This 294-nucleotide RNA sequence from Fusarium sp. AF-6 belongs to the Rfam family "Group I catalytic intron".
RNA sequence: ACAACAACAACCUGGGAAGUUGUUUCUAUUAUUAAGGGAUAAACUGUCAAACUCCGGGGAAGCCCUAAAGCUUUUGGUACCAAAUCUGGUUGAAUUAUACCGUGGUGGAUGAACUAAUUACUCAUGUAUGGUAACAAGCCAAAAGAUUCUUGAAAAAGGAAUGGGUAAUCACGGAUCUAAGUCAACAGUAUUUUUAAAUACUAUUGUAAAAGAGCAACGAGUAGACGGCAGUUGUAUUGGGUUAGUAACUAAUCCAAUAUUAAGGUGUACUCUAAGAGGAUUCGAAAGAAUAUC
Numbered sequence: 001a002c003a004a005c006a007a008c009a010a011c012c013u014g015g016g017a018a019g020u021u022g023u024u025u026c027u028a029u030u031a032u033u034a035a036g037g038g039a040u041a042a043a044c045u046g047u048c049a050a051a052c053u054c055c056g057g058g059g060a061a062g063c064c065c066u067a068a069a070g071c072u073u074u075u076g077g078u079a080c081c082a083a084a085u086c087u088g089g090u091u092g093a094a095u096u097a098u099a100c101c102g103u104g105g106u107g108g109a110u111g112a113a114c115u116a117a118u119u120a121c122u123c124a125u126g127u128a129u130g131g132u133a134a135c136a137a138g139c140c141a142a143a144a145g146a147u148u149c150u151u152g153a154a155a156a157a158g159g160a161a162u163g164g165g166u167a168a169u170c171a172c173g174g175a176u177c178u179a180a181g182u183c184a185a186c187a188g189u190a191u192u193u194u195u196a197a198a199u200a201c202u203a204u205u206g207u208a209a210a211a212g213a214g215c216a217a218c219g220a221g222u223a224g225a226c227g228g229c230a231g232u233u234g235u236a237u238u239g240g241g242u243u244a245g246u247a248a249c250u251a252a253u254c255c256a257a258u259a260u261u262a263a264g265g266u267g268u269a270c271u272c273u274a275a276g277a278g279g280a281u282u283c284g285a286a287a288g289a290a291u292a293u294c
Stems, first nucleotide, its partner, number of pairs: 001029001042233005048227001053175004057170002063165003176213002183206002188201005217273001219272005235259009280291004
Group I catalytic introns are large self-splicing ribozymes. They catalyse their own excision from mRNA, tRNA and rRNA precursors in a wide range of organisms. The core secondary structure consists of 9 paired regions (P1-P9). It scores 50 bits against the family's covariance model. The source organism's lineage runs through Eukaryota, Opisthokonta, Dikarya, Hypocreales and Fusarium solani species complex.